[Rfam]
Shown here is a 160-nucleotide RNA from Gigaspora rosea, a member of the family "U12 minor spliceosomal RNA". By type it is a spliceosomal small nuclear RNA. The literature on the family includes a 2002 paper in Mol Cell by Otake et al., "The divergent U12-type spliceosome is required for pre-mRNA splicing and is essential for development in Drosophila". The family has 62 seed sequences and 2,106 matches in Rfam 15.1. Gene Ontology terms of the family: U12 snRNP, pre-mRNA branch point binding and mRNA branch site recognition.
RNA sequence: GCGCCUCAAAUUAAUGAGUAAGGAUAAUAUAGGAUUUGGGUGACACCUAAUCCACCAUAUACUACGGUAUAUGAGGUUCACCAAUAUUUGACGGGGUAAAGAACGGCCUUGGGAGUUUUCCGCCUACUUUGCGGAGUUCACCCAUGAUUGCUGGUCUCCU
Numbered sequence: 001g002c003g004c005c006u007c008a009a010a011u012u013a014a015u016g017a018g019u020a021a022g023g024a025u026a027a028u029a030u031a032g033g034a035u036u037u038g039g040g041u042g043a044c045a046c047c048u049a050a051u052c053c054a055c056c057a058u059a060u061a062c063u064a065c066g067g068u069a070u071a072u073g074a075g076g077u078u079c080a081c082c083a084a085u086a087u088u089u090g091a092c093g094g095g096g097u098a099a100a101g102a103a104c105g106g107c108c109u110u111g112g113g114a115g116u117u118u119u120c121c122g123c124c125u126a127c128u129u130u131g132c133g134g135a136g137u138u139c140a141c142c143c144a145u146g147a148u149u150g151c152u153g154g155u156c157u158c159c160u
Base pairs, nucleotide, nucleotide: 004023005022006021008019032053033052034051035050036049038047039046054077055076056075058073059072060071061070095160096159100157101156102155104153105152106151108146111143112142113141115139119135120134121133122132123131